[Rfam]
Shown here is a 46-nucleotide RNA, a member of the family "eL15-Euryarchaeota ribosomal protein leader". Pairs were carried over by alignment from the consensus structure, which is taken from published work. Rfam classes the family as a cis-regulatory leader.

RNA sequence: GCGGAUGGGUGUCCGCUGGGAUGUGGCCUAUAGGCUGAACCAUAAA
Numbered sequence: 001g002c003g004g005a006u007g008g009g010u011g012u013c014c015g016c017u018g019g020g021a022u023g024u025g026g027c028c029u030a031u032a033g034g035c036u037g038a039a040c041c042a043u044a045a046a
Base pairs, nucleotide, nucleotide: 001016002015003014004013005012017042018041019040025036026035027034028033
Dot-bracket structure: (((((......)))))(((.....((((....))))...)))....